[Rfam]
Shown here is a 47-nucleotide RNA sequence from Methanohalophilus mahii, a member of the family "eL15-Euryarchaeota ribosomal protein leader". The organism belongs to Methanohalophilus mahii, within Archaea. Rfam classes the family as a cis-regulatory leader.

RNA sequence: ACGGGAAGAAUCCCGUUGGAGUGUGGCCUUUAUGGCUGAACCGUCAA
Numbered sequence: 001a002c003g004g005g006a007a008g009a010a011u012c013c014c015g016u017u018g019g020a021g022u023g024u025g026g027c028c029u030u031u032a033u034g035g036c037u038g039a040a041c042c043g044u045c046a047a
Stems, first nucleotide, its partner, number of pairs: 001016005017043003025037004